The family of this 86-nucleotide sequence from Clostridium ljungdahlii is "Group II catalytic intron D1-D4-1". The match comes from Rfam's covariance-model search (69 bits). Group II introns are found in rRNA, tRNA and mRNA of organelles in fungi, plants and protists, and also in mRNA in bacteria. The base pairs follow the family's consensus structure. Taxonomically the source falls in Clostridium (Bacteria, Bacillati, Clostridia, Eubacteriales).
[Rfam]
RNA sequence: CAACCUAUAUAGCAAUAUAUAAUUGAACUGUCAGAAGUCAGCAGAAGUCAUAGUACCAGUCCAGUCAUGAAUGAACUGGGAAGGAC
Numbered sequence: 001c002a003a004c005c006u007a008u009a010u011a012g013c014a015a016u017a018u019a020u021a022a023u024u025g026a027a028c029u030g031u032c033a034g035a036a037g038u039c040a041g042c043a044g045a046a047g048u049c050a051u052a053g054u055a056c057c058a059g060u061c062c063a064g065u066c067a068u069g070a071a072u073g074a075a076c077u078g079g080g081a082a083g084g085a086c
Stems, first nucleotide, its partner, number of pairs: 001025002006021006038045002047086003056079005